[Rfam]
RNA sequence: CACGUCAGCGCGCUUUACUGACAUGGCAUCAAAUCGCGUCGACGUAAGCACGAUUUGUGUCCACGUCAGUAAAGCGCGCUGACGUGG
Numbered sequence: 001c002a003c004g005u006c007a008g009c010g011c012g013c014u015u016u017a018c019u020g021a022c023a024u025g026g027c028a029u030c031a032a033a034u035c036g037c038g039u040c041g042a043c044g045u046a047a048g049c050a051c052g053a054u055u056u057g058u059g060u061c062c063a064c065g066u067c068a069g070u071a072a073a074g075c076g077c078g079c080u081g082a083c084g085u086g087g
Base pairs, nucleotide, nucleotide: 001086002085003084004083005082006081007080008079009078010077011076012075013074014073015072016071017070018069019068020067021066024063025062026061030057031056032055033054034053035052036051038049

Shown here is an 87-nucleotide sequence from Gossypium hirsutum, a member of the family "MIR7486 microRNA precursor family". The match comes from Rfam's covariance-model search (75 bits). Taxonomically the source falls in Gossypium (Eukaryota, Embryophyta, Euphyllophyta, Pentapetalae). The base pairs follow the family's consensus structure, which was predicted with RNAalifold.